[Rfam]
RNA sequence: AAUCGUUCCUACGGCAUACCCUUACGGGUUGAGGGAUAGCAGAGGACGAGAGGCUUGAACCUCAGUAACAGCAGCCCUAUGGCUGGAAAACUGAAAAAGCACGAAAUUCAAGUAGAGGCUGGUAGGUUCAUUCUCGAACGCCUUGGACUUG
Numbered sequence: 001a002a003u004c005g006u007u008c009c010u011a012c013g014g015c016a017u018a019c020c021c022u023u024a025c026g027g028g029u030u031g032a033g034g035g036a037u038a039g040c041a042g043a044g045g046a047c048g049a050g051a052g053g054c055u056u057g058a059a060c061c062u063c064a065g066u067a068a069c070a071g072c073a074g075c076c077c078u079a080u081g082g083c084u085g086g087a088a089a090a091c092u093g094a095a096a097a098a099g100c101a102c103g104a105a106a107u108u109c110a111a112g113u114a115g116a117g118g119c120u121g122g123u124a125g126g127u128u129c130a131u132u133c134u135c136g137a138a139c140g141c142c143u144u145g146g147a148c149u150u151g
Base pairs, nucleotide, nucleotide: 003049004048005047006046007045012042014040015039019035020034021033022032023031052060062094063093064092065091066090072085073084074083075082076081109151110150111149112148113147115144116143117142118141119140125134126133
Dot-bracket structure: ..(((((....(.((...(((((.......)))))...)).)..)))))..(.......).(((((.....(((((....)))))....)))))..............(((((.(((((.....((......)).....)))))..)))))
This 151-nucleotide RNA belongs to the Rfam family "RT-3 RNA". By type it is a small RNA. Rfam's curators put it in the seed alignment.